[Rfam]
RNA sequence: CACCCGUCACAACGGCUUCCUGGCGUGACGGCGUCAUUCGCACUGGAGCG
Numbered sequence: 001c002a003c004c005c006g007u008c009a010c011a012a013c014g015g016c017u018u019c020c021u022g023g024c025g026u027g028a029c030g031g032c033g034u035c036a037u038u039c040g041c042a043c044u045g046g047a048g049c050g
Stems, first nucleotide, its partner, number of pairs: 004031007013022002015049003019046002
Dot-bracket structure: ...(((((((..(([[[.[[))..))))))).............]]]]].
Rfam assigns this 50-nucleotide RNA sequence from Pelagimonas varians to the family "SAM/SAH riboswitch aptamer". On this family, see Weickhmann et al., Nucleic Acids Res 2019: "The structure of the SAM/SAH-binding riboswitch".